[Rfam]
RNA sequence: GAAUGAAAUGAUGAAGACAUUAUAUUUGAUGUUGAAUAUGAUAGCAUUCAUGUAUUAGCUCUAGCUGAUCAUUC
Numbered sequence: 001g002a003a004u005g006a007a008a009u010g011a012u013g014a015a016g017a018c019a020u021u022a023u024a025u026u027u028g029a030u031g032u033u034g035a036a037u038a039u040g041a042u043a044g045c046a047u048u049c050a051u052g053u054a055u056u057a058g059c060u061c062u063a064g065c066u067g068a069u070c071a072u073u074c
Stems, first nucleotide, its partner, number of pairs: 002073004028048001030046004